Shown here is a 121-nucleotide sequence from Hydatigera taeniaeformis, a member of the family "U11 spliceosomal RNA". Rfam 15.1 lists 2,595 matches to the family in 1,202 species. The family's RNA type in Rfam is spliceosomal small nuclear RNA. A reference for the family is Marz et al. (2008), "Evolution of spliceosomal snRNA genes in metazoan animals", J Mol Evol.
[Rfam]
RNA sequence: UAAAAGGGCUCCGCGCCAAAUGCGCAGGCCGAAUGUGACGCGUUCGGUCCGGAAUGGUCAUCAAGACAUUUCGGGAGCGUAAUCUUUGAUCGUGGCAUGUCCGCCAUCGCGGGACGGCCUU
Numbered sequence: 001u002a003a004a005a006g007g008g009c010u011c012c013g014c015g016c017c018a019a020a021u022g023c024g025c026a027g028g029c030c031g032a033a034u035g036u037g038a039c040g041c042g043u044u045c046g047g048u049c050c051g052g053a054a055u056g057g058u059c060a061u062c063a064a065g066a067c068a069u070u071u072c073g074g075g076a077g078c079g080u081a082a083u084c085u086u087u088g089a090u091c092g093u094g095g096c097a098u099g100u101c102c103g104c105c106a107u108c109g110c111g112g113g114a115c116g117g118c119c120u121u
Base pairs, nucleotide, nucleotide: 008078009077010076011075012074013025014024015023016022027049028048029047030046031045032044033043034042035041036040050073051072052071053070054069055068056067094119095118096117099115100114101113102112